[Rfam]
RNA: Selenocysteine transfer RNA
RNA sequence: GGGAAUGAAUGAAUUCUGGUGGAUUCAGGAGACUUCAAAUCUUUUUUCGGGUGGUAAGACCGGCCGAGGUAGGUUCGAUUCCUACUCACUCCC
Numbered sequence: 001g002g003g004a005a006u007g008a009a010u011g012a013a014u015u016c017u018g019g020u021g022g023a024u025u026c027a028g029g030a031g032a033c034u035u036c037a038a039a040u041c042u043u044u045u046u047u048c049g050g051g052u053g054g055u056a057a058g059a060c061c062g063g064c065c066g067a068g069g070u071a072g073g074u075u076c077g078a079u080u081c082c083u084a085c086u087c088a089c090u091c092c093c
Base pairs, nucleotide, nucleotide: 001093002092003091004090006088007087008086011026012025013024014023015022016021027045028044029043030042031041032040047067048066049065050064070084071083072082073081